[Rfam]
RNA sequence: AGAUAACUCAGAGUCCUCCUACGGAGGAUAUGAGUAACGGUCGUUUGGCACGGCCAGUAGCCUACUUGUUCAAUCAAACCUCGGGGCGUUUCGCACCGAGCGAACAGGCAGGUUGCAAACCUUAAUAUCCCAACGCUCGGGAAUCCUCGCGCUUUAGCGCGGGGA
Numbered sequence: 001a002g003a004u005a006a007c008u009c010a011g012a013g014u015c016c017u018c019c020u021a022c023g024g025a026g027g028a029u030a031u032g033a034g035u036a037a038c039g040g041u042c043g044u045u046u047g048g049c050a051c052g053g054c055c056a057g058u059a060g061c062c063u064a065c066u067u068g069u070u071c072a073a074u075c076a077a078a079c080c081u082c083g084g085g086g087c088g089u090u091u092c093g094c095a096c097c098g099a100g101c102g103a104a105c106a107g108g109c110a111g112g113u114u115g116c117a118a119a120c121c122u123u124a125a126u127a128u129c130c131c132a133a134c135g136c137u138c139g140g141g142a143a144u145c146c147u148c149g150c151g152c153u154u155u156a157g158c159g160c161g162g163g164g165a
Stems, first nucleotide, its partner, number of pairs: 004037001007034004013029007039055005058115006065108007083097002086094002128142004133137001144165009
The record is a 165-nucleotide sequence from Natronococcus pandeyae, which matches "Sense overlapping transcript RNA 0042 (sot)" in Rfam. For this family Rfam cites "Sense overlapping transcripts in IS1341-type transposase genes are functional non-coding RNAs in archaea" (Gomes-Filho et al., RNA Biol, 2015). Pairs were carried over by alignment from the consensus structure, which was predicted with RNAfold. Rfam's curators write: It is associated with IS1341-type transposase (tnpB) genes, at the 3'-end in H. salinarum NRC-1. The tetraloop structural motif may be functional. The family's RNA type in Rfam is small RNA.